[Rfam]
RNA: sul1 RNA
RNA sequence: CGUGGACCCGGCAGCGCCGGGUGGCUCGGCCGGGCGCCUAUCCCCCGGAAAACU
Number, nucleotide and partner (000 for none) at each position: 001c000002g000003u000004g000005g000006a022007c021008c020009c019010g018011g017012c000013a000014g000015c000016g000017c011018c010019g009020g008021g007022u006023g000024g000025c000026u000027c000028g000029g000030c048031c047032g046033g045034g044035c000036g000037c000038c000039u000040a000041u000042c000043c000044c034045c033046c032047g031048g030049a000050a000051a000052a000053c000054u000